The record is an 89-nucleotide sequence from Lactuca sativa, which matches "Small nucleolar RNA R16" in Rfam. A reference for the family is Galardi et al. (2002), "Purified box C/D snoRNPs are able to reproduce site-specific 2'-O-methylation of target RNA in vitro", Mol Cell Biol. Its family is annotated with RNA processing and nucleolus in the Gene Ontology. Taxonomically the source falls in Lactuca (Eukaryota, Spermatophyta, Magnoliopsida, Cichorioideae). It scores 54 bits against the family's covariance model.
RNA sequence: GAAGGCAAAUGAUGCGACACAUCAAUCUUAUACUACACACUGAAUAUUUUCAUGUAGAAAACAACUCUCAAUUAUCUUCUGAUGCUUUC
Numbered sequence: 001g002a003a004g005g006c007a008a009a010u011g012a013u014g015c016g017a018c019a020c021a022u023c024a025a026u027c028u029u030a031u032a033c034u035a036c037a038c039a040c041u042g043a044a045u046a047u048u049u050u051c052a053u054g055u056a057g058a059a060a061a062c063a064a065c066u067c068u069c070a071a072u073u074a075u076c077u078u079c080u081g082a083u084g085c086u087u088u089c
Stems, first nucleotide, its partner, number of pairs: 003087005
The base pairs follow the family's consensus structure, which was predicted with PFOLD.